Small nucleolar RNA R160: an 82-nucleotide RNA sequence from Salvia splendens. NCBI's taxonomy places the organism under Eukaryota, Gunneridae, asterids, Lamiales, core Calosphace. Its family is annotated with RNA processing and nucleolus in the Gene Ontology. The match comes from Rfam's covariance-model search (65 bits). snoR160 is a C/D box small nucleolar RNA, which acts as a methylation guide for 25S ribosomal RNA in plants. snoR160 has been alternatively named snoZ270 in rice. Rfam classes the family as a C/D-box small nucleolar RNA. The pairing is the family consensus, mapped onto this sequence.

RNA sequence: AGCAAAAUGAUGAAGUUAUCAAUCCGAAUUUUCUAUGUGGAUUACUCAUGAUAAUUAUGGUCUUCAAAGUUCUCUGAUUGCU
Number, nucleotide and partner (000 for none) at each position: 001a082002g081003c080004a079005a078006a000007a000008u000009g000010a000011u000012g000013a000014a000015g000016u000017u000018a000019u000020c000021a000022a000023u000024c000025c000026g000027a000028a000029u000030u000031u000032u000033c000034u000035a000036u000037g000038u000039g000040g000041a000042u000043u000044a000045c000046u000047c000048a000049u000050g000051a000052u000053a000054a000055u000056u000057a000058u000059g000060g000061u000062c000063u000064u000065c000066a000067a000068a000069g000070u000071u000072c000073u000074c000075u000076g000077a000078u005079u004080g003081c002082u001